[Rfam]
RNA: Small nucleolar RNA Z112
RNA sequence: CUUUAUGUUGGAAUUACCGUCAGACCAUAGGAAGUGCCAUAUGACACUGUAAACAACAGCUGCUUCUCAACACUGCAAGUGUCCUCCUUCGAGCAUAGCCUUUGUGGUUUUCUUUCCGUGUUAAUUUCGUUUUCUUUCGGUGAAGAUCCCAGCAGAGAGGUGUUGAAUCUCCCUUGUUGAGG
Numbered sequence: 001c002u003u004u005a006u007g008u009u010g011g012a013a014u015u016a017c018c019g020u021c022a023g024a025c026c027a028u029a030g031g032a033a034g035u036g037c038c039a040u041a042u043g044a045c046a047c048u049g050u051a052a053a054c055a056a057c058a059g060c061u062g063c064u065u066c067u068c069a070a071c072a073c074u075g076c077a078a079g080u081g082u083c084c085u086c087c088u089u090c091g092a093g094c095a096u097a098g099c100c101u102u103u104g105u106g107g108u109u110u111u112c113u114u115u116c117c118g119u120g121u122u123a124a125u126u127u128c129g130u131u132u133u134c135u136u137u138c139g140g141u142g143a144a145g146a147u148c149c150c151a152g153c154a155g156a157g158a159g160g161u162g163u164u165g166a167a168u169c170u171c172c173c174u175u176g177u178u179g180a181g182g
Stems, first nucleotide, its partner, number of pairs: 001182005075134001077132005082123001084120001086118001091114003095110001097109004